[Rfam]
RNA sequence: ACGUGCUCCGGGGUCGGUGGGAAUCCGAACCGGCGGUGACAGUCCGCGAGCCGAAGCGCCAGACGCGCCAGGCUGAUCCGGUGGAAUUCCGGGACCGACGGUGAUGUGCGACGAGAGUCGCACGAGUCCGGAUGGGAGGCAGCACGA
Numbered sequence: 001a002c003g004u005g006c007u008c009c010g011g012g013g014u015c016g017g018u019g020g021g022a023a024u025c026c027g028a029a030c031c032g033g034c035g036g037u038g039a040c041a042g043u044c045c046g047c048g049a050g051c052c053g054a055a056g057c058g059c060c061a062g063a064c065g066c067g068c069c070a071g072g073c074u075g076a077u078c079c080g081g082u083g084g085a086a087u088u089c090c091g092g093g094a095c096c097g098a099c100g101g102u103g104a105u106g107u108g109c110g111a112c113g114a115g116a117g118u119c120g121c122a123c124g125a126g127u128c129c130g131g132a133u134g135g136g137a138g139g140c141a142g143c144a145c146g147a
Stems, first nucleotide, its partner, number of pairs: 002146006008138001015027003031097002033047004042095002050073003077093005099130003
Shown here is a 147-nucleotide sequence from Microbacterium sp. Root53, a member of the family "FMN riboswitch aptamer (RFN element)". Pairs were carried over by alignment from the consensus structure, which is taken from published work. The source organism's lineage runs through Bacteria, Actinomycetota, Actinomycetes, Microbacteriaceae and Microbacterium. The match comes from Rfam's covariance-model search (74 bits).